Description: This 63-nucleotide RNA sequence from Octodon degus belongs to the Rfam family "Ma3 gene ribosomal frameshift signal".

RNA sequence: GGGAAAUGAAGACGGGGCUGGGGAGAUGAGCCUUCCCAAGUCCUCCCCAAGAGAAUAGGCCUA
Numbered sequence: 001g002g003g004a005a006a007u008g009a010a011g012a013c014g015g016g017g018c019u020g021g022g023g024a025g026a027u028g029a030g031c032c033u034u035c036c037c038a039a040g041u042c043c044u045c046c047c048c049a050a051g052a053g054a055a056u057a058g059g060c061c062u063a
Base pairs, nucleotide, nucleotide: 014044015043016042017041018040019039021037022036023035024034028062030060031059032058
Rfam 15.1 lists 565 matches to the family in 155 species.
Pairs were carried over by alignment from the consensus structure, which is taken from published work.
On this family, see Wills et al., J Biol Chem 2006: "A functional -1 ribosomal frameshift signal in the human paraneoplastic Ma3 gene".
Rfam classes the family as a frameshift element.